[Rfam]
RNA sequence: GCACAUAGAACGGCUUGCAAGGGUGGUCGGCUACCUCUCUAUGAAGGGAGGGAUGCCCAUGGAGGUUAAAGACUCUUUGAUGUUGAUGAUCAGUUUUGGUGCGUUAAUCGUUGCGCUGAUCACGCUGAUUGUUGCCAUCAUUGCAGUAAUUAAUCAACAAAAAUAGACCGCCCUCUUGACAGGUAAACGGUCUAUUUCCGACUUCAUUACCGAAGCCGACCGCCUUUGAAGCGGUCUAUUGUGCUGAAGGAGUCGUGUUAGCCGCACGUCUC
Numbered sequence: 001g002c003a004c005a006u007a008g009a010a011c012g013g014c015u016u017g018c019a020a021g022g023g024u025g026g027u028c029g030g031c032u033a034c035c036u037c038u039c040u041a042u043g044a045a046g047g048g049a050g051g052g053a054u055g056c057c058c059a060u061g062g063a064g065g066u067u068a069a070a071g072a073c074u075c076u077u078u079g080a081u082g083u084u085g086a087u088g089a090u091c092a093g094u095u096u097u098g099g100u101g102c103g104u105u106a107a108u109c110g111u112u113g114c115g116c117u118g119a120u121c122a123c124g125c126u127g128a129u130u131g132u133u134g135c136c137a138u139c140a141u142u143g144c145a146g147u148a149a150u151u152a153a154u155c156a157a158c159a160a161a162a163a164u165a166g167a168c169c170g171c172c173c174u175c176u177u178g179a180c181a182g183g184u185a186a187a188c189g190g191u192c193u194a195u196u197u198c199c200g201a202c203u204u205c206a207u208u209a210c211c212g213a214a215g216c217c218g219a220c221c222g223c224c225u226u227u228g229a230a231g232c233g234g235u236c237u238a239u240u241g242u243g244c245u246g247a248a249g250g251a252g253u254c255g256u257g258u259u260a261g262c263c264g265c266a267c268g269u270c271u272c
Base pairs, nucleotide, nucleotide: 001244002243003242004241005240007237008236010235011218012217013216014215015214016213018178019177020174021173022172023171025168027166032053034051035050036049037048038047039046074089075088098139099138100137101136188200189199190198220234221233222232223231250272251271252270254268255267256266257265258264
The family of this 272-nucleotide RNA from Cohnella fermenti is "BsrG". Rfam classes the family as a small RNA. Rfam links the family to the GO terms autolysis and toxin activity. The base pairs follow the family's consensus structure, which was predicted with WAR. NCBI's taxonomy places the organism under Bacteria, Bacillati, Bacilli, Caryophanales, Cohnella. bsrE, bsrG and bsrH pair through intermolecular interactions with antisense sRNAs. They form type I toxin/antitoxin system that includes an mRNA encoding for a short, toxic peptide (bsrE, bsrG and bsrH) and an antitoxin that is comprised of an antisense RNA. bsrG encodes a 39-amino-acid toxin, and the 180 nucleotide antisense sRNA called SR4 acts as the antitoxin (they overlap by 123 nucleotides). It scores 73 bits against the family's covariance model.